[Rfam]
RNA sequence: GGGGCUGAUUUUGGAUUCGACAAGAUUCUUGAGGCUUUAGGUGCAUGCAGAGGAGCGGUUUGCCUCUUAAAAAGCCGCAUUUAAAUAGUCGCAAACGACGAAAACUACGCUCUAGCCGCUUAAUAACCGGCUAAGCCCUUCCACUCAUACUCUUUCUGCUAGUAGAGGUUCGGAAGGUCAUCCCAGCAGAAUAGCGAGGGAACCUUGUCUAAGGGUGAACCGCGAAACAGUAUUAGGCCCGCUAUGAGAAAUCCUGUCUGCCGGAGUUCAAAAUAGUUAAAUAAAAGACAGAAUAAGCAUGUAGUACCGACGGUUAACGUUUUUUGGACGCGGGUUCAACUCCCGCCAGCUCCACCA
Numbered sequence: 001g002g003g004g005c006u007g008a009u010u011u012u013g014g015a016u017u018c019g020a021c022a023a024g025a026u027u028c029u030u031g032a033g034g035c036u037u038u039a040g041g042u043g044c045a046u047g048c049a050g051a052g053g054a055g056c057g058g059u060u061u062g063c064c065u066c067u068u069a070a071a072a073a074g075c076c077g078c079a080u081u082u083a084a085a086u087a088g089u090c091g092c093a094a095a096c097g098a099c100g101a102a103a104a105c106u107a108c109g110c111u112c113u114a115g116c117c118g119c120u121u122a123a124u125a126a127c128c129g130g131c132u133a134a135g136c137c138c139u140u141c142c143a144c145u146c147a148u149a150c151u152c153u154u155u156c157u158g159c160u161a162g163u164a165g166a167g168g169u170u171c172g173g174a175a176g177g178u179c180a181u182c183c184c185a186g187c188a189g190a191a192u193a194g195c196g197a198g199g200g201a202a203c204c205u206u207g208u209c210u211a212a213g214g215g216u217g218a219a220c221c222g223c224g225a226a227a228c229a230g231u232a233u234u235a236g237g238c239c240c241g242c243u244a245u246g247a248g249a250a251a252u253c254c255u256g257u258c259u260g261c262c263g264g265a266g267u268u269c270a271a272a273a274u275a276g277u278u279a280a281a282u283a284a285a286a287g288a289c290a291g292a293a294u295a296a297g298c299a300u301g302u303a304g305u306a307c308c309g310a311c312g313g314u315u316a317a318c319g320u321u322u323u324u325u326g327g328a329c330g331c332g333g334g335u336u337c338a339a340c341u342c343c344c345g346c347c348a349g350c351u352c353c354a355c356c357a
Stems, first nucleotide, its partner, number of pairs: 001353007021326005028319001030317001033315004038310001040308003044301005049067005055078006113133006137177006144168002148164004154191007194223003207239001209237002212234001241277005252265003257292004262287001330346005
The record is a 357-nucleotide sequence from Paraglaciecola mesophila, which matches "transfer-messenger RNA" in Rfam. On this family, see Williams, Nucleic Acids Res 2002: "The tmRNA Website: invasion by an intron". Its family is annotated with RNA catabolic process in the Gene Ontology. Rfam describes the family as follows. Bacterial tmRNA, also known as 10Sa RNA or SsrA, is named for its dual tRNA and mRNA-like properties. The organism belongs to Paraglaciecola mesophila, within Bacteria. Clan: tRNA clan. By type it is a non-coding RNA gene. Pairs were carried over by alignment from the consensus structure, which is taken from published work.